[Rfam]
Background
This 67-nucleotide RNA from Brugia malayi belongs to the Rfam family "mir-5881 microRNA precursor family". The family has 2 seed sequences and 6 matches in Rfam 15.1. Its family is annotated with RISC complex and miRNA-mediated post-transcriptional gene silencing in the Gene Ontology.

RNA sequence: UAAAAUCGGACAACUACGACACUAAGGGCGCAAAAGUCGCCCUUAGUGUCGUAGUUGUCCUAAUUUC
Numbered sequence: 001u002a003a004a005a006u007c008g009g010a011c012a013a014c015u016a017c018g019a020c021a022c023u024a025a026g027g028g029c030g031c032a033a034a035a036g037u038c039g040c041c042c043u044u045a046g047u048g049u050c051g052u053a054g055u056u057g058u059c060c061u062a063a064u065u066u067c
Stems, first nucleotide, its partner, number of pairs: 002066003008060023032037001